[Rfam]
RNA: Bacterial RNase P class A
RNA sequence: AUAGCAGGCCACCUUAUCGCUGCAAGUAUGGGUAACCUUACUUGAAGAGGAAAGUCCGGACACCAUAGUGCGGCAUAGCGGGUAACGCCCGUCCGCCGUGAGGCGAGGACCAGUGCAACAGAAAGCAAGUACAGUUCGGCUGUAGUGAAAUCGGCAAACUCUAUGCGGUGAAACGUCAUGUAAACCAAUGUUUGAGGGCUGCACGCCCGAGUUGGAGGGUAGGCGGUUGGAACACUUGGGCAACCAUUUGUCUAGAUAAAUGAUAAGGGUAUACAGAAUCCGGCUUAUGGCCUGCUUUUAUU
Dot-bracket structure: (.((((((((((((((((.((.((((((..........)))))).))....[[[.[[[[[((((...[[[[.((((((((((.....)))))(((((....)))).)((...((((.............((((((...)))))).........))..)))))))))))))...((((.......(((((......((((.]]]]))))..)))))......))))......(((..(((....)))..)))..........)))))))..........]]]]]]]].))))))))).)....
Numbered sequence: 001a002u003a004g005c006a007g008g009c010c011a012c013c014u015u016a017u018c019g020c021u022g023c024a025a026g027u028a029u030g031g032g033u034a035a036c037c038u039u040a041c042u043u044g045a046a047g048a049g050g051a052a053a054g055u056c057c058g059g060a061c062a063c064c065a066u067a068g069u070g071c072g073g074c075a076u077a078g079c080g081g082g083u084a085a086c087g088c089c090c091g092u093c094c095g096c097c098g099u100g101a102g103g104c105g106a107g108g109a110c111c112a113g114u115g116c117a118a119c120a121g122a123a124a125g126c127a128a129g130u131a132c133a134g135u136u137c138g139g140c141u142g143u144a145g146u147g148a149a150a151u152c153g154g155c156a157a158a159c160u161c162u163a164u165g166c167g168g169u170g171a172a173a174c175g176u177c178a179u180g181u182a183a184a185c186c187a188a189u190g191u192u193u194g195a196g197g198g199c200u201g202c203a204c205g206c207c208c209g210a211g212u213u214g215g216a217g218g219g220u221a222g223g224c225g226g227u228u229g230g231a232a233c234a235c236u237u238g239g240g241c242a243a244c245c246a247u248u249u250g251u252c253u254a255g256a257u258a259a260a261u262g263a264u265a266a267g268g269g270u271a272u273a274c275a276g277a278a279u280c281c282g283g284c285u286u287a288u289g290g291c292c293u294g295c296u297u298u299u300a301u302u
Stems, first nucleotide, its partner, number of pairs: 001298001003296009012268007020047002023044006052286003056283005061170004068204004073166005078092005093107001094105004108161002113159002115155002130144006174225004185215005196208004232251003237246003